Nuclear RNase P: a 358-nucleotide RNA from Colletotrichum gloeosporioides. The match comes from Rfam's covariance-model search (42 bits). Pairs were carried over by alignment from the consensus structure, which is taken from published work. Lineage of the source: Eukaryota > Opisthokonta > Ascomycota > saccharomyceta > Colletotrichum gloeosporioides.
[Rfam]
Nucleotides: 358
Base pairs, nucleotide, nucleotide: 001358002357003356004355009351010350011349017284025041026040027039028038029037030036062341063340064339065338066337073255074254075253076252120131121130122129123128134149135148136147137146138145151251152250153249154248157246158245159244172235173234174233288329289328290327292325293324
Number, partner (000 for none) and nucleotide at each position: 001358g002357u003356u004355c005000g006000u007000g008000c009351g010350c011349a012000a013000g014000c015000a016000c017284g018000a019000u020000c021000u022000c023000u024000c025041g026040a027039g028038a029037a030036g031000c032000u033000c034000g035000u036030c037029u038028u039027c040026u041025c042000a043000a044000a045000u046000u047000g048000g049000c050000a051000u052000a053000u054000g055000a056000g057000a058000a059000a060000u061000u062341c063340g064339g065338a066337g067000u068000a069000a070000c071000a072000u073255c074254u075253u076252c077000a078000c079000u080000a081000c082000c083000a084000c085000c086000c087000a088000a089000u090000g091000u092000c093000u094000c095000c096000u097000g098000c099000c100000c101000u102000g103000u104000g105000u106000g107000g108000g109000a110000u111000g112000a113000c114000g115000g116000g117000u118000c119000u120131g121130c122129c123128c124000g125000c126000g127000a128123g129122g130121g131120u132000c133000u134149g135148g136147c137146g138145u139000g140000a141000c142000u143000u144000c145138a146137c147136g148135c149134u150000u151251g152250c153249a154248a155000u156000u157246g158245g159244c160000a161000u162000c163000a164000g165000a166000a167000a168000a169000g170000c171000a172235g173234g174233g175000c176000c177000c178000g179000c180000a181000g182000c183000c184000g185000u186000c187000c188000u189000c190000g191000u192000g193000u194000a195000u196000a197000c198000c199000c200000u201000u202000c203000g204000g205000g206000g207000g208000a209000a210000g211000a212000c213000g214000g215000g216000g217000u218000u219000c220000u221000g222000g223000a224000c225000u226000c227000g228000g229000u230000g231000a232000c233174c234173c235172u236000u237000u238000g239000g240000g241000a242000g243000a244159g245158u246157c247000a248154u249153u250152g251151c252076g253075a254074a255073g256000a257000u258000u259000g260000u261000g262000c263000a264000c265000a266000g267000c268000a269000c270000u271000u272000g273000a274000g275000u276000g277000c278000g279000a280000u281000a282000c283000g284017c285000a286000g287000c288329g289328u290327c291000u292325g293324g294000g295000a296000u297000c298000c299000c300000g301000a302000c303000u304000g305000g306000c307000u308000u309000c310000g311000g312000c313000u314000g315000g316000g317000c318000g319000g320000g321000g322000g323000a324293c325292u326000u327290g328289a329288c330000a331000a332000u333000u334000c335000a336000a337066u338065u339064c340063c341062g342000a343000u344000c345000a346000u347000u348000c349011u350010g351009u352000u353000g354000a355004g356003g357002a358001c